The family of this 115-nucleotide RNA from Aspergillus chevalieri is "U5 spliceosomal RNA". Taxonomically the source falls in Aspergillus subgen. Aspergillus (Eukaryota, Fungi, Pezizomycotina, Eurotiomycetes). It scores 73 bits against the family's covariance model. Rfam classes the family as a spliceosomal small nuclear RNA. U5 RNA is a component of both types of known spliceosome. The precise function of this molecule is unknown, though it is known that the 5' loop is required for splice site selection and p220 binding, and that both the 3' stem-loop and the Sm site are important for Sm protein binding and cap methylation.
[Rfam]
RNA sequence: GAGGAGUGGGACAGGCUAGCUCAGAACCCAUUUCUUGCCUUUUACCAGAGAUGGCCGUGGCUUGCCCAAAAUACUCCUCUCCACAAUCUUUGGAAUCCUUCCAUCGACAUAGUAG
Numbered sequence: 001g002a003g004g005a006g007u008g009g010g011a012c013a014g015g016c017u018a019g020c021u022c023a024g025a026a027c028c029c030a031u032u033u034c035u036u037g038c039c040u041u042u043u044a045c046c047a048g049a050g051a052u053g054g055c056c057g058u059g060g061c062u063u064g065c066c067c068a069a070a071a072u073a074c075u076c077c078u079c080u081c082c083a084c085a086a087u088c089u090u091u092g093g094a095a096u097c098c099u100u101c102c103a104u105c106g107a108c109a110u111a112g113u114a115g
Stems, first nucleotide, its partner, number of pairs: 003077004009067002012064007028054008098115002101112001
Dot-bracket structure: ..((((..((.(((((((.........((((((((...........))))))))...))))))).))......))))....................((.(..........).))